Iron response element II: a 31-nucleotide sequence from Aquarana catesbeiana. Rfam links the family to the GO term response to iron ion. Lineage of the source: Eukaryota > Euteleostomi > Batrachia > Ranidae > Aquarana. On this family, see Koeller et al., Proc Natl Acad Sci U S A 1989: "A cytosolic protein binds to structural elements within the iron regulatory region of the transferrin receptor mRNA". The match comes from Rfam's covariance-model search (31 bits). IRE, TFRC, SLC40A1, SDHB, SLC11A2, CDC42BPA, ACO2, ALAS2_H.SAPIENS, CDC14A, EPAS1, ALAS2, qoxD, Hao1, NDUFS1, transferrin, Aconitate. Pairs were carried over by alignment from the consensus structure, which is taken from published work.

[Rfam]
RNA sequence: UUGUCAUCGGUGCCAAUGUGCACCAUGACAG
Numbered sequence: 001u002u003g004u005c006a007u008c009g010g011u012g013c014c015a016a017u018g019u020g021c022a023c024c025a026u027g028a029c030a031g
Base pairs, nucleotide, nucleotide: 001031002030003029004028005027006026007025009024010023011022012021013020014018